[Rfam]
This 206-nucleotide RNA from Castor canadensis belongs to the Rfam family "Small nucleolar RNA U3". Rfam 15.1 lists 19,072 matches to the family in 1,215 species. The base pairs follow the family's consensus structure, which is taken from published work. About the family: Small nucleolar RNAs (snoRNAs) are involved in the processing and modification of rRNA in the nucleolus. There are two main classes of snoRNAs: the box C/D class, and the box H/ACA class. By type it is a C/D-box small nucleolar RNA.
RNA sequence: AAGAAUAUACUUUCAGGGGUCAUUUCUAUAGUUCUUUACUAGAGAAGUUUCUGUGAUCAGGUAGAGUACCCGAAAUCACAAGGAGGAGGUGUAAUGUUCUCACCUGAGUGUGAGGCUGGCUUUUAGUACUGCUGUGUUGCAGCUGCCAUUUGCCAUUAUUCUUUUCCUUUGGAGAAGCAAGAGGGUGAGGACAUCAUCUGAGUGGU
Numbered sequence: 001a002a003g004a005a006u007a008u009a010c011u012u013u014c015a016g017g018g019g020u021c022a023u024u025u026c027u028a029u030a031g032u033u034c035u036u037u038a039c040u041a042g043a044g045a046a047g048u049u050u051c052u053g054u055g056a057u058c059a060g061g062u063a064g065a066g067u068a069c070c071c072g073a074a075a076u077c078a079c080a081a082g083g084a085g086g087a088g089g090u091g092u093a094a095u096g097u098u099c100u101c102a103c104c105u106g107a108g109u110g111u112g113a114g115g116c117u118g119g120c121u122u123u124u125a126g127u128a129c130u131g132c133u134g135u136g137u138u139g140c141a142g143c144u145g146c147c148a149u150u151u152g153c154c155a156u157u158a159u160u161c162u163u164u165u166c167c168u169u170u171g172g173a174g175a176a177g178c179a180a181g182a183g184g185g186u187g188a189g190g191a192c193a194u195c196a197u198c199u200g201a202g203u204g205g206u
Base pairs, nucleotide, nucleotide: 002040003039005037009032010031011030015027016026017025018024049065050064053062054061075206076205077204078203079202094194095193096192097191098190099189100188101187102186103185104184105183108159109158110157118154119153120152124148126146127145129142130141131140132139160179161177162176163175164174165173166172167171
Dot-bracket structure: .((.(...(((...((((.....))))..)))....).))........((..((......)).)).........(((((..............((((((((((((..(((.......(((...(.((.((((......))))..)).)...)))..)))((((((((...))))))).)...)))))))))))).......)))))